[Rfam]
RNA sequence: CUUCAGCGAGCCCAGCCACAACGGCCGGCCCGCCGGACGCUUUUGGCCAUACGUCGCCAGCAGCGCCUGCGCCUC
Numbered sequence: 001c002u003u004c005a006g007c008g009a010g011c012c013c014a015g016c017c018a019c020a021a022c023g024g025c026c027g028g029c030c031c032g033c034c035g036g037a038c039g040c041u042u043u044u045g046g047c048c049a050u051a052c053g054u055c056g057c058c059a060g061c062a063g064c065g066c067c068u069g070c071g072c073c074u075c
Stems, first nucleotide, its partner, number of pairs: 015025003031071003038065002043060003047056001049054001
The record is a 75-nucleotide sequence from Streptomyces zagrosensis, which matches "ASpks TB sRNA" in Rfam. It is annotated as an antisense RNA.